[Rfam]
This 324-nucleotide RNA sequence from Phainopepla nitens belongs to the Rfam family "7SK RNA".
RNA sequence: GGGUGUGAGGGCAGUUGGGCUGCAACAUCUGUCACCCCACUGAUGACCAGGUGAUUGAGCCGACCUGGCUGGCUCGGUGGGUGUCCACGUGCUCCUCGAUGCUCCAUGUGCAUCCCUACCAAAGCUGCACACUGGUUGAAGAGGGUGAUCUUCCCCAUGCAGAUGGUGCUGUUCUUCAGUCAAGGGUAUACAGCAGCCCUGUCCCCUGCUAGAACCAACCUCCAAACAAGCUCAAGGUUUAUGGCUAUUUAUGCUGUAACUGCAGUUUCCCUAAUGAUUUUCCAGUGACCUGCCAGAGAUCUAAAGGAAAUAUUUUCUGAGUGG
Numbered sequence: 001g002g003g004u005g006u007g008a009g010g011g012c013a014g015u016u017g018g019g020c021u022g023c024a025a026c027a028u029c030u031g032u033c034a035c036c037c038c039a040c041u042g043a044u045g046a047c048c049a050g051g052u053g054a055u056u057g058a059g060c061c062g063a064c065c066u067g068g069c070u071g072g073c074u075c076g077g078u079g080g081g082u083g084u085c086c087a088c089g090u091g092c093u094c095c096u097c098g099a100u101g102c103u104c105c106a107u108g109u110g111c112a113u114c115c116c117u118a119c120c121a122a123a124g125c126u127g128c129a130c131a132c133u134g135g136u137u138g139a140a141g142a143g144g145g146u147g148a149u150c151u152u153c154c155c156c157a158u159g160c161a162g163a164u165g166g167u168g169c170u171g172u173u174c175u176u177c178a179g180u181c182a183a184g185g186g187u188a189u190a191c192a193g194c195a196g197c198c199c200u201g202u203c204c205c206c207u208g209c210u211a212g213a214a215c216c217a218a219c220c221u222c223c224a225a226a227c228a229a230g231c232u233c234a235a236g237g238u239u240u241a242u243g244g245c246u247a248u249u250u251a252u253g254c255u256g257u258a259a260c261u262g263c264a265g266u267u268u269c270c271c272u273a274a275u276g277a278u279u280u281u282c283c284a285g286u287g288a289c290c291u292g293c294c295a296g297a298g299a300u301c302u303a304a305a306g307g308a309a310a311u312a313u314u315u316u317c318u319g320a321g322u323g324g
Stems, first nucleotide, its partner, number of pairs: 001105003006098006014090001018088001025084009035072002037068003042065001044063001047059001113166002116162002119135002122133001124132001136157001138156001143154003195267003201261001206256001208254002217248001224246001227243002290324003294319005299311002302308001
Source information:
A search with the family's covariance model found it, with a score of 102 bits. The family's consensus secondary structure is taken from published work. Rfam's curators write: 7SK was discovered as an abundant small nuclear RNA in the mid-70s but a possible function has only recently been suggested. Two independent studies have found that 7SK RNA binds the CDK9/cyclin T complex (known as elongation factor P-TEFb). P-TEFb activates transcription by phosphorylating the C-terminal domain of RNA polymerase II. This process is negatively regulated by the 7SK RNP. The secondary structure of 7SK RNA shown here was proposed by Wasserman and Steitz on the basis of chemical modification and enzymatic cleavage experiments. This family contains a number of annotated pseudogenes and 7SK derived repeats. The threshold is artificially high to minimise the pseudogene count. Clan: 7SK clan.